[Rfam]
RNA sequence: AACGGACUGGUUCUUAAACUUCCCAGAAUAAAAAACUAAGAAUCU
Numbered sequence: 001a002a003c004g005g006a007c008u009g010g011u012u013c014u015u016a017a018a019c020u021u022c023c024c025a026g027a028a029u030a031a032a033a034a035a036c037u038a039a040g041a042a043u044c045u
Base pairs, nucleotide, nucleotide: 007026008025009024010023015038016037